Group II catalytic intron D1-D4-2: a 116-nucleotide RNA from Cellvibrio sp. PSBB006.
Gene Ontology term of the family: Group II intron splicing.
On this family, see Lehmann and Schmidt, Crit Rev Biochem Mol Biol 2003: "Group II introns: structure and catalytic versatility of large natural ribozymes".
It scores 87 bits against the family's covariance model.
The family has 144 seed sequences and 1,231 matches in Rfam 15.1.

RNA sequence: GGUGGUAGGCCCACCGCAUUCGCUUUGCAGUAAGAGAGUGUAAACCACUUCAAGUGGCAUAGAUUAAGAGUCUCUGUCGGAACGUUGAAGAAAAGUCGGAAAUAAAUUCGGCAGGU
Dot-bracket structure: (((((.....)))))((((((.(((......))).))))))....(.((((((.(.(((.((((.....)))).))).).....))))))....((((((......))))))..).